[Rfam]
RNA sequence: UGCAAGUGAUGUUUCUCUCACAGUGGUCUACCAAGCGUUCGUGGCUUUGACGAAAUUACCUGAAGGCAACACUGAUGCACUCAU
Numbered sequence: 001u002g003c004a005a006g007u008g009a010u011g012u013u014u015c016u017c018u019c020a021c022a023g024u025g026g027u028c029u030a031c032c033a034a035g036c037g038u039u040c041g042u043g044g045c046u047u048u049g050a051c052g053a054a055a056u057u058a059c060c061u062g063a064a065g066g067c068a069a070c071a072c073u074g075a076u077g078c079a080c081u082c083a084u
Stems, first nucleotide, its partner, number of pairs: 001079004

Overview
The family of this 84-nucleotide RNA from Coregonus sp. 'balchen' is "Small nucleolar RNA SNORD35". Clan: SNORD35 clan. A search with the family's covariance model found it, with a score of 43 bits. Rfam's curators write: U35 is a C/D box snoRNA located in intron 6 of ribosomal protein L13A and intron 3 of ribosomal protein S11 in humans and at homologous positions in mouse and chicken ribosomal protein genes. U35 guides the methylation of 2'-O-ribose sites in 28S rRNA.